The record is a 68-nucleotide RNA sequence from Lederbergia lenta, which matches "Bacillaceae-1 RNA" in Rfam. Pairs were carried over by alignment from the consensus structure, which is taken from published work. By type it is a small RNA. The match comes from Rfam's covariance-model search (48 bits).

[Rfam]
Nucleotides: 068
Stems, first nucleotide, its partner, number of pairs: 011051001013049004027041005054068005
Number, partner (000 for none) and nucleotide at each position: 001000a002000u003000g004000a005000a006000a007000g008000g009000a010000u011051c012000c013049u014048u015047g016046a017000c018000u019000c020000u021000a022000a023000g024000a025000a026000c027041g028040c029039u030038g031037c032000a033000u034000c035000u036000u037031g038030c039029g040028g041027c042000a043000a044000c045000a046016u047015c048014g049013a050000c051011g052000c053000a054068c055067c056066c057065a058064c059000g060000u061000c062000c063000u064058g065057u066056g067055g068054g